[Rfam]
RNA sequence: CAGCAUCUGUUUGACAGACCUGGAGCAAGCACCCGUUGCUUUUCUGGUUCUUGUGGAGAUGCAACAGUGACAGGUUCCUUGCGCUUUCUGCCUGCCUGACCCUGUGGCAGUCUGGAUUGAAUAAAGGAAUACAAAC
Number, nucleotide and partner (000 for none) at each position: 001c000002a000003g062004c061005a060006u059007c058008u057009g000010u000011u000012u053013g052014a000015c000016a000017g049018a048019c047020c046021u000022g000023g041024a040025g039026c038027a037028a036029g000030c000031a000032c000033c000034c000035g000036u028037u027038g026039c025040u024041u023042u000043u000044c000045u000046g020047g019048u018049u017050c000051u000052u013053g012054u000055g000056g000057a008058g007059a006060u005061g004062c003063a000064a000065c000066a000067g000068u000069g000070a000071c000072a000073g000074g000075u000076u128077c127078c126079u125080u124081g000082c000083g000084c119085u000086u000087u116088c115089u114090g113091c000092c110093u109094g108095c107096c106097u000098g000099a000100c000101c000102c000103u000104g000105u000106g096107g095108c094109a093110g092111u000112c000113u090114g089115g088116a087117u000118u000119g084120a000121a000122u000123a000124a080125a079126g078127g077128a076129a000130u000131a000132c000133a000134a000135a000136c000
Rfam assigns this 136-nucleotide sequence from Alectura lathami to the family "Small nucleolar RNA SNORA31". The literature on the family includes a 2001 paper in EMBO J by Huttenhofer et al., "RNomics: an experimental approach that identifies 201 candidates for novel, small, non-messenger RNAs in mouse". Rfam 15.1 lists 2,094 matches to the family in 626 species. About the family: ACA31 (SNORA31) belongs to the H/ACA class of snoRNAs which are thought to guide the sites of modification of uridines to pseudouridines. ACA31 is predicted to guide the pseudouridylation of U3713 in 28S rRNA and U218 in 18S rRNA. This family includes the mouse homologue snoMBI-161.